[Rfam]
RNA: mir-252 microRNA precursor family
Organism: Dracunculus medinensis
RNA sequence: AUUGCAAACUAAGUAGUAGUGCCGCAGGUAACUUUGUAUGAGAUUACUUGCUCCCUGCUGCUUAAACUGAAAU
Numbered sequence: 001a002u003u004g005c006a007a008a009c010u011a012a013g014u015a016g017u018a019g020u021g022c023c024g025c026a027g028g029u030a031a032c033u034u035u036g037u038a039u040g041a042g043a044u045u046a047c048u049u050g051c052u053c054c055c056u057g058c059u060g061c062u063u064a065a066a067c068u069g070a071a072a073u
Base pairs, nucleotide, nucleotide: 001073002072003071005069006068010064011063012062013061014060015059016058017057018056019055024051025050026049027048028047029046030045
Dot-bracket structure: (((.((...((((((((((....(((((((..............)))))))...))))))))))...)).)))